[Rfam]
RNA sequence: CCGGGAGGACGACCUCCCCUCGCACCGAUCACGGCAGGGACGGCCCCG
Numbered sequence: 001c002c003g004g005g006a007g008g009a010c011g012a013c014c015u016c017c018c019c020u021c022g023c024a025c026c027g028a029u030c031a032c033g034g035c036a037g038g039g040a041c042g043g044c045c046c047c048g
Stems, first nucleotide, its partner, number of pairs: 003018006035048001037046003
Dot-bracket structure: ..((((((....))))))................(.(((....))).)
This 48-nucleotide RNA from Teichococcus cervicalis belongs to the Rfam family "Guanidine-II riboswitch aptamer (mini-ykkC)". The match comes from Rfam's covariance-model search (37 bits).